[Rfam]
RNA sequence: UUGGGGCUGUAAACAUCCCCGACUGGAAGCUGUCUAUCCUCAGAGCUUUCAGUCGGAUGUUUGCCACUGCCAA
Numbered sequence: 001u002u003g004g005g006g007c008u009g010u011a012a013a014c015a016u017c018c019c020c021g022a023c024u025g026g027a028a029g030c031u032g033u034c035u036a037u038c039c040u041c042a043g044a045g046c047u048u049u050c051a052g053u054c055g056g057a058u059g060u061u062u063g064c065c066a067c068u069g070c071c072a073a
Base pairs, nucleotide, nucleotide: 002072003071004070006068009064010063011062012061013060014059015058016057017056018055022053023052024051025050026049027048028047029046030045031044
RNA: mir-30 microRNA precursor family